The record is a 60-nucleotide RNA from Euptelea pleiosperma, which matches "Plastid-psbA-4 3UTR RNA" in Rfam. Rfam describes the family as follows. Plastid psbA-4 is a non-coding RNA (ncRNA) present in plastids. The family is grouped with related families in Rfam's "Plastid-psbA 3UTR RNA clan". Pairs were carried over by alignment from the consensus structure, which was predicted with LocARNA.

[Rfam]
RNA sequence: AAGUUGAAGGAGCAAUACCCACCCUCUUGAUAGAACAAGAAAUUGGUAUUGCUCCUUCAU
Numbered sequence: 001a002a003g004u005u006g007a008a009g010g011a012g013c014a015a016u017a018c019c020c021a022c023c024c025u026c027u028u029g030a031u032a033g034a035a036c037a038a039g040a041a042a043u044u045g046g047u048a049u050u051g052c053u054c055c056u057u058c059a060u
Base pairs, nucleotide, nucleotide: 006058007057008056009055010054011053012052013051014050015049016048017047025040026039027038028037029036
Rfam's curators put it in the seed alignment.